[Rfam]
RNA sequence: ACGUGAGAUAGAGGUUGCAACUUUUAUGAGUAUUCUAAAGGAGACACAGAGAUUGUCAGUGAGUUUAGAAGAAAGGAAAAGUUGCCGAAAUUUAUAUGUUUCUCUGAACAUGUAAAUUGGGGCUGUUUUCGAAUAGAAACAGAACUGUCAUAUAUACAGCGGUGUAUAUAUGAAGAGCUAUCUACAAA
Numbered sequence: 001a002c003g004u005g006a007g008a009u010a011g012a013g014g015u016u017g018c019a020a021c022u023u024u025u026a027u028g029a030g031u032a033u034u035c036u037a038a039a040g041g042a043g044a045c046a047c048a049g050a051g052a053u054u055g056u057c058a059g060u061g062a063g064u065u066u067a068g069a070a071g072a073a074a075g076g077a078a079a080a081g082u083u084g085c086c087g088a089a090a091u092u093u094a095u096a097u098g099u100u101u102c103u104c105u106g107a108a109c110a111u112g113u114a115a116a117u118u119g120g121g122g123c124u125g126u127u128u129u130c131g132a133a134u135a136g137a138a139a140c141a142g143a144a145c146u147g148u149c150a151u152a153u154a155u156a157c158a159g160c161g162g163u164g165u166a167u168a169u170a171u172g173a174a175g176a177g178c179u180a181u182c183u184a185c186a187a188a
Stems, first nucleotide, its partner, number of pairs: 006183006017085009033070007089118012119146002123142007148173009
RNA: Lysine riboswitch aptamer